[Rfam]
RNA sequence: AAUUGUGAGUAAUCGCGGUCGGCAACAGUCGGCUGAGGAAAGUCCAUGCUCGCACAGGCUGAGAUGCCUGUAGUGUUCGUGCUCGGUGAAAAAAUAAGCCGGGGAACUCAUUUUGAGUUACGGCGGACUUCACGCUAAGGCCUUUGGCUAUGCUAACAAGUCCUUAAGGUGCCACAGUGACGAUACAGAUUAGGAAACUUUUCUGGUGGAACGCGGUAAACCCCUCGAGCGGGAAACCCAAACUUAUGGUAGGGGAGCUUCACACACGGAAAUUGAACCAAGUGUGGGGGGAAGGUGCAAGCCUUCGAGAUAGAUGAUUACUACUUAAGCAAUUGCCCUGGAAUUGUUUAAGCACAAAACAUGGCUUACAGGA
Numbered sequence: 001a002a003u004u005g006u007g008a009g010u011a012a013u014c015g016c017g018g019u020c021g022g023c024a025a026c027a028g029u030c031g032g033c034u035g036a037g038g039a040a041a042g043u044c045c046a047u048g049c050u051c052g053c054a055c056a057g058g059c060u061g062a063g064a065u066g067c068c069u070g071u072a073g074u075g076u077u078c079g080u081g082c083u084c085g086g087u088g089a090a091a092a093a094a095u096a097a098g099c100c101g102g103g104g105a106a107c108u109c110a111u112u113u114u115g116a117g118u119u120a121c122g123g124c125g126g127a128c129u130u131c132a133c134g135c136u137a138a139g140g141c142c143u144u145u146g147g148c149u150a151u152g153c154u155a156a157c158a159a160g161u162c163c164u165u166a167a168g169g170u171g172c173c174a175c176a177g178u179g180a181c182g183a184u185a186c187a188g189a190u191u192a193g194g195a196a197a198c199u200u201u202u203c204u205g206g207u208g209g210a211a212c213g214c215g216g217u218a219a220a221c222c223c224c225u226c227g228a229g230c231g232g233g234a235a236a237c238c239c240a241a242a243c244u245u246a247u248g249g250u251a252g253g254g255g256a257g258c259u260u261c262a263c264a265c266a267c268g269g270a271a272a273u274u275g276a277a278c279c280a281a282g283u284g285u286g287g288g289g290g291g292a293a294g295g296u297g298c299a300a301g302c303c304u305u306c307g308a309g310a311u312a313g314a315u316g317a318u319u320a321c322u323a324c325u326u327a328a329g330c331a332a333u334u335g336c337c338c339u340g341g342a343a344u345u346g347u348u349u350a351a352g353c354a355c356a357a358a359a360c361a362u363g364g365c366u367u368a369c370a371g372g373a
Stems, first nucleotide, its partner, number of pairs: 004373001006371001007369001008322007016035006040367003044364005049233005054071006077228003081224001082103006104121001105119006122223002125163004134153002139149003169221002171217003186205004192199002237254003258289007291306005324352011

Rfam assigns this 373-nucleotide sequence from Lentilactobacillus senioris to the family "Bacterial RNase P class B". Rfam describes the family as follows. Ribonuclease P (RNase P) is a ubiquitous endoribonuclease, found in archaea, bacteria and eukarya as well as chloroplasts and mitochondria. Its best characterised activity is the generation of mature 5'-ends of tRNAs by cleaving the 5'-leader elements of precursor-tRNAs. Cellular RNase Ps are ribonucleoproteins. The family is grouped with related families in Rfam's "RNaseP clan". Its family is annotated with dimeric ribonuclease P complex, ribonuclease P activity and tRNA processing in the Gene Ontology.